RNA: Rhizobiales sRNA Atu_C9
Organism: Pseudorhizobium banfieldiae
RNA sequence: UGUCAGCACAAGGAGGCAGACAUGGGACGUGCAUACUCUCUUAAUGUCCUGGUAGUCGGUGCAGCGUUUGUGUUCGUGGCUUCCAUGCUCUUUAUCUGAGCGCCACAAUCUCUCCGCAUCGGGACAUAUCUGGCAUCCGUGACACCUGUAUGACAGUUUGGCCUCUCGAAAACGCAGCUCCCCUGGGCUGCGUUUU
Numbered sequence: 001u002g003u004c005a006g007c008a009c010a011a012g013g014a015g016g017c018a019g020a021c022a023u024g025g026g027a028c029g030u031g032c033a034u035a036c037u038c039u040c041u042u043a044a045u046g047u048c049c050u051g052g053u054a055g056u057c058g059g060u061g062c063a064g065c066g067u068u069u070g071u072g073u074u075c076g077u078g079g080c081u082u083c084c085a086u087g088c089u090c091u092u093u094a095u096c097u098g099a100g101c102g103c104c105a106c107a108a109u110c111u112c113u114c115c116g117c118a119u120c121g122g123g124a125c126a127u128a129u130c131u132g133g134c135a136u137c138c139g140u141g142a143c144a145c146c147u148g149u150a151u152g153a154c155a156g157u158u159u160g161g162c163c164u165c166u167c168g169a170a171a172a173c174g175c176a177g178c179u180c181c182c183c184u185g186g187g188c189u190g191c192g193u194u195u196u
Base pairs, nucleotide, nucleotide: 015048016047017046018045024040025039026038027037169196170195171194172193173192174191175190176189177188178187179186180185